[Rfam]
RNA: t44 RNA
Organism: Aquirhabdus parva
RNA sequence: GAAUUGAGGAAAUAAAUCCGCACAUACGCCGACAAUUCGUCUGGGUGCUGGGGCUGUGAAACAGUAUUUUUAGUCCAACUUUCUUACAAGCUGAUUAAAAAAGUAUACUGAAUUUGCGUUCUAGUGGACGAAUCGGGCGUAUGGAGGCCUAAC
Numbered sequence: 001g002a003a004u005u006g007a008g009g010a011a012a013u014a015a016a017u018c019c020g021c022a023c024a025u026a027c028g029c030c031g032a033c034a035a036u037u038c039g040u041c042u043g044g045g046u047g048c049u050g051g052g053g054c055u056g057u058g059a060a061a062c063a064g065u066a067u068u069u070u071u072a073g074u075c076c077a078a079c080u081u082u083c084u085u086a087c088a089a090g091c092u093g094a095u096u097a098a099a100a101a102a103g104u105a106u107a108c109u110g111a112a113u114u115u116g117c118g119u120u121c122u123a124g125u126g127g128a129c130g131a132a133u134c135g136g137g138c139g140u141a142u143g144g145a146g147g148c149c150u151a152a153c
Stems, first nucleotide, its partner, number of pairs: 023143008035133008047125008